[Rfam]
RNA: MIR394 microRNA precursor family
RNA sequence: CUUACAGAUUUCUUUGGCAUUCUGUCCACCUCCUUCUAUACAUCUAUCAUACAUUUUUAGUAUGGAUAUGGUUUGUGAGUUAAUGAGGGAGGUGGGCAUACUGCCAAUAGACAUUUGUUAG
Numbered sequence: 001c002u003u004a005c006a007g008a009u010u011u012c013u014u015u016g017g018c019a020u021u022c023u024g025u026c027c028a029c030c031u032c033c034u035u036c037u038a039u040a041c042a043u044c045u046a047u048c049a050u051a052c053a054u055u056u057u058u059a060g061u062a063u064g065g066a067u068a069u070g071g072u073u074u075g076u077g078a079g080u081u082a083a084u085g086a087g088g089g090a091g092g093u094g095g096g097c098a099u100a101c102u103g104c105c106a107a108u109a110g111a112c113a114u115u116u117g118u119u120a121g
Stems, first nucleotide, its partner, number of pairs: 011111001014107006023098014